[Rfam]
RNA: DUF3800-XI RNA
RNA sequence: UGGGCUGGCCGUAGGGCCCGGGUCCAACCAACUGGCGGGCAUACAGCCC
Numbered sequence: 001u002g003g004g005c006u007g008g009c010c011g012u013a014g015g016g017c018c019c020g021g022g023u024c025c026a027a028c029c030a031a032c033u034g035g036c037g038g039g040c041a042u043a044c045a046g047c048c049c
Stems, first nucleotide, its partner, number of pairs: 001026006007018004